[Rfam]
RNA sequence: CUCUAUCGUGCCCUCAUUGUACAUGCUGUGUGAAUUUGUCACAUACACAGCGCAUGCAAUGUGGACAUAAUGGAG
Numbered sequence: 001c002u003c004u005a006u007c008g009u010g011c012c013c014u015c016a017u018u019g020u021a022c023a024u025g026c027u028g029u030g031u032g033a034a035u036u037u038g039u040c041a042c043a044u045a046c047a048c049a050g051c052g053c054a055u056g057c058a059a060u061g062u063g064g065a066c067a068u069a070a071u072g073g074a075g
Base pairs, nucleotide, nucleotide: 012064013063015061016060017059018058019057020056021055024052026050027049028048029047030046031045